[Rfam]
This 117-nucleotide sequence from Haemophilus influenzae belongs to the Rfam family "Ribosomal S15 leader". It is annotated as a cis-regulatory leader.
RNA sequence: ACUUCCGUCAUAAAUCCAUUUUUGAAUUGCUAUUUGAUCGCUCUUUUUUAGGAGUAAAAAAUGUCUCUAAGUACUGAAAAAAAAGCAGCAAUCGUUGCUGAAUUUGGUCGUGAUGCG
Numbered sequence: 001a002c003u004u005c006c007g008u009c010a011u012a013a014a015u016c017c018a019u020u021u022u023u024g025a026a027u028u029g030c031u032a033u034u035u036g037a038u039c040g041c042u043c044u045u046u047u048u049u050a051g052g053a054g055u056a057a058a059a060a061a062u063g064u065c066u067c068u069a070a071g072u073a074c075u076g077a078a079a080a081a082a083a084a085g086c087a088g089c090a091a092u093c094g095u096u097g098c099u100g101a102a103u104u105u106g107g108u109c110g111u112g113a114u115g116c117g
Stems, first nucleotide, its partner, number of pairs: 008025003012021001048071002051068004
Background:
The literature on the family includes a 1996 paper in Biochimie by Benard et al., "Pseudoknot and translational control in the expression of the S15 ribosomal protein". Clan: Ribosomal Protein S15 Leader clan. From the family's description: The E. coli Ribosomal S15 gene 5' UTR can form two alternative structures. One that is a series of three hairpins, The other includes a pseudoknot. This structure causes translational regulation of the S15 protein. The alignment of this family contains only the final two hairpins which are conserved in other species, and also includes the complete region that forms the alternate structures.